This 67-nucleotide RNA sequence from Sporosarcina sp. JAI121 belongs to the Rfam family "Bacillaceae-1 RNA". The match comes from Rfam's covariance-model search (70 bits). Taxonomically the source falls in Sporosarcina (Bacteria, Bacillati, Bacillota, Caryophanales). The family's RNA type in Rfam is small RNA.

RNA sequence: UUUCACAGAACGCAGUCUGAAACCGCCGCGUCCUGCGGCAACGACUGCAUGACCUACGUCCUGUAGG
Numbered sequence: 001u002u003u004c005a006c007a008g009a010a011c012g013c014a015g016u017c018u019g020a021a022a023c024c025g026c027c028g029c030g031u032c033c034u035g036c037g038g039c040a041a042c043g044a045c046u047g048c049a050u051g052a053c054c055u056a057c058g059u060c061c062u063g064u065a066g067g
Base pairs, nucleotide, nucleotide: 012048013047014046015045016044017043025039026038027037028036029035053067054066055065056064057063